Shown here is a 62-nucleotide RNA from Oncorhynchus kisutch, a member of the family "mir-728 microRNA precursor family". A search with the family's covariance model found it, with a score of 83 bits. The family has 4 seed sequences and 193 matches in Rfam 15.1. The organism belongs to Oncorhynchus, within Eukaryota.
RNA sequence: AAAUGUAGUAGACUAUAAGUAUACAUGAAACUCGCAGAGUAUACUAAGUACACUACGUUUUC
Numbered sequence: 001a002a003a004u005g006u007a008g009u010a011g012a013c014u015a016u017a018a019g020u021a022u023a024c025a026u027g028a029a030a031c032u033c034g035c036a037g038a039g040u041a042u043a044c045u046a047a048g049u050a051c052a053c054u055a056c057g058u059u060u061u062c
Stems, first nucleotide, its partner, number of pairs: 001060009012049003018045007